A member of the RNA family "Lysine riboswitch aptamer" from Pseudoalteromonas ulvae, 194 nucleotides long.
Taxonomically the source falls in Pseudoalteromonas (Bacteria, Pseudomonadota, Gammaproteobacteria, Pseudoalteromonadaceae).
RNA sequence: AGGGCUAGAAGAGGUGCGUUAUUCAGGUAAUAAGUACGAGGAGAGCAAACUCCGUUGACCACUUAUGAGGGGAAUUAACGCCGAGAAUGCGUAUUGUUUGCUGCAAUACAAUUUCGGGCGACUGGGCUGAAUCCCAGCGACUGUCACCAAUAACAGCGAUGCUGUUGUAUGUUUGGUGGAGAGCUUCUGGUCUU
Numbered sequence: 001a002g003g004g005c006u007a008g009a010a011g012a013g014g015u016g017c018g019u020u021a022u023u024c025a026g027g028u029a030a031u032a033a034g035u036a037c038g039a040g041g042a043g044a045g046c047a048a049a050c051u052c053c054g055u056u057g058a059c060c061a062c063u064u065a066u067g068a069g070g071g072g073a074a075u076u077a078a079c080g081c082c083g084a085g086a087a088u089g090c091g092u093a094u095u096g097u098u099u100g101c102u103g104c105a106a107u108a109c110a111a112u113u114u115c116g117g118g119c120g121a122c123u124g125g126g127c128u129g130a131a132u133c134c135c136a137g138c139g140a141c142u143g144u145c146a147c148c149a150a151u152a153a154c155a156g157c158g159a160u161g162c163u164g165u166u167g168u169a170u171g172u173u174u175g176g177u178g179g180a181g182a183g184c185u186u187c188u189g190g191u192c193u194u
Base pairs, nucleotide, nucleotide: 006189007188008187009186010185011184016081017080018079019078020077021076023074030066031065032064033063034062035061085115086114087113091109092108093107094106095105096104116142117141119139122137123136124135125134126133144179145178146177147176148175149174150173
Overview: Gene Ontology term of the family: lysine biosynthetic process.